A member of the RNA family "LOOT RNA", 125 nucleotides long. It is annotated as a small RNA.
[Rfam]
RNA sequence: UGCCUAAGUCUUAUAGAUUUCUAUAGGAUAUGGCAAAAGAAGCCCGUUCAGAGCAGUAAGCCUCUCAUCAGAGCACUCUGAACGGGUCAUGUCAGGAAACUGGCAUGGGUGGCCGCAAGGCCAUC
Numbered sequence: 001u002g003c004c005u006a007a008g009u010c011u012u013a014u015a016g017a018u019u020u021c022u023a024u025a026g027g028a029u030a031u032g033g034c035a036a037a038a039g040a041a042g043c044c045c046g047u048u049c050a051g052a053g054c055a056g057u058a059a060g061c062c063u064c065u066c067a068u069c070a071g072a073g074c075a076c077u078c079u080g081a082a083c084g085g086g087u088c089a090u091g092u093c094a095g096g097a098a099a100c101u102g103g104c105a106u107g108g109g110u111g112g113c114c115g116c117a118a119g120g121c122c123a124u125c
Base pairs, nucleotide, nucleotide: 001035002034003033004032009028010027011026012025013024014023015022043086044085045084046083047082048081049080050079051078052077053076060074061073063072064071065070088107089106090105091104092103093102094101095100108125109124110123111122112121113120